mir-2807 microRNA precursor family: an 84-nucleotide sequence from Bombyx mori. Rfam links the family to the GO terms miRNA-mediated post-transcriptional gene silencing and RISC complex. The base pairs follow the family's consensus structure, which was predicted with RNAalifold. The match comes from Rfam's covariance-model search (59 bits).
RNA sequence: UUAACUGAAAUUUGUAUGCAGUUAGAACAGCGCCCCUAGCGGCAAACGUAGGUAAACGUUCCAACUCUAUACAUAUUUUAGUUA
Numbered sequence: 001u002u003a004a005c006u007g008a009a010a011u012u013u014g015u016a017u018g019c020a021g022u023u024a025g026a027a028c029a030g031c032g033c034c035c036c037u038a039g040c041g042g043c044a045a046a047c048g049u050a051g052g053u054a055a056a057c058g059u060u061c062c063a064a065c066u067c068u069a070u071a072c073a074u075a076u077u078u079u080a081g082u083u084a
Stems, first nucleotide, its partner, number of pairs: 008078004013073004018068001020066004025061004034052002039047001